A member of the RNA family "RtT RNA" from Erwinia tasmaniensis, 125 nucleotides long. Rfam's curators write: This family represents a bacterial cis-regulatory element known as RtT RNA. The exact function of RtT is unknown although it is thought that it may be involved in changing the cellular response in relation to amino acid starvation. It is annotated as a cis-regulatory element. The base pairs follow the family's consensus structure, which is taken from published work.

RNA sequence: ACGCGGUGCGAACCGUGCAGGGUUCGAACCUGCAGCAGGUCGAGUCGAACGCAGUGAGACAACGUUGCCAGCGGCAACGGCCCAGAGGGCAAGGCGCAGCCGAAGUCAUCCUGCACGACCCACCA
Dot-bracket structure: ..............(((((((.(................(((...((.......))......((((((.....))))))...).)).....................).))))))).........